[Rfam]
RNA sequence: ACUUUUCUAGUUGAAGCCUGAGAAAUCAGGCCGAUGGCUGGUGACUUUUUAGUCACCAGCCA
Numbered sequence: 001a002c003u004u005u006u007c008u009a010g011u012u013g014a015a016g017c018c019u020g021a022g023a024a025a026u027c028a029g030g031c032c033g034a035u036g037g038c039u040g041g042u043g044a045c046u047u048u049u050u051a052g053u054c055a056c057c058a059g060c061c062a
Stems, first nucleotide, its partner, number of pairs: 016031003022027001036061010